[Rfam]
Rfam assigns this 76-nucleotide sequence from Panurus biarmicus to the family "Small nucleolar RNA SNORD83". The source organism's lineage runs through Eukaryota, Eumetazoa, Euteleostomi, Theropoda and Panurus. The base pairs follow the family's consensus structure, which was predicted with PFOLD.
RNA sequence: GACAAAUGAUGUGAAGUGGAUGACAUUAGCACUCUGUGCAAAGAUGACCUUCAUCCAUCACCCCAUGCUGAUGGCU
Numbered sequence: 001g002a003c004a005a006a007u008g009a010u011g012u013g014a015a016g017u018g019g020a021u022g023a024c025a026u027u028a029g030c031a032c033u034c035u036g037u038g039c040a041a042a043g044a045u046g047a048c049c050u051u052c053a054u055c056c057a058u059c060a061c062c063c064c065a066u067g068c069u070g071a072u073g074g075c076u
Stems, first nucleotide, its partner, number of pairs: 001075001003073002029039004